RNA sequence: UUGAGUUGUUACCAUUAGCGAGGUAUAGAGUUCCUACGUUUUAUAUGAAUUUGUAGGAACUUCAUACCGUGCUCUUGGAACUUCUUC
Numbered sequence: 001u002u003g004a005g006u007u008g009u010u011a012c013c014a015u016u017a018g019c020g021a022g023g024u025a026u027a028g029a030g031u032u033c034c035u036a037c038g039u040u041u042u043a044u045a046u047g048a049a050u051u052u053g054u055a056g057g058a059a060c061u062u063c064a065u066a067c068c069g070u071g072c073u074c075u076u077g078g079a080a081c082u083u084c085u086u087c
Stems, first nucleotide, its partner, number of pairs: 012078003017073004022068005028062010
RNA: mir-276 microRNA precursor family
Organism: Pseudolycoriella hygida